Source information: Rfam assigns this 110-nucleotide sequence from Microbacterium sp. Gd 4-13 to the family "TPP riboswitch aptamer (THI element)".

[Rfam]
Nucleotides: 110
Base pairs, nucleotide, nucleotide: 009095010094011061012060013059014058017032018031019030020029021028039055040054041053042052043051066091067090068089069088072085073084074083075082
Number, partner (000 for none) and nucleotide at each position: 001000g002000c003000c004000u005000g006000g007000a008000a009095c010094c011061a012060c013059g014058g015000g016000a017032g018031u019030c020029c021028g022000g023000u024000g025000a026000g027000c028021c029020g030019g031018g032017c033000u034000g035000a036000g037000a038000g039055g040054a041053a042052g043051c044000g045000a046000u047000c048000c049000a050000c051043g052042c053041u054040u055039c056000g057000a058014c059013c060012g061011u062000c063000g064000a065000a066091c067090c068089u069088g070000a071000u072085c073084u074083g075082g076000g077000u078000c079000a080000u081000g082075c083074c084073a085072g086000c087000g088069c089068a090067g091066g092000g093000a094010g095009g096000a097000g098000a099000g100000a101000a102000a103000a104000u105000g106000c107000a108000c109000a110000c

The source organism's lineage runs through Bacteria, Actinomycetota, Micrococcales, Microbacteriaceae and Microbacterium.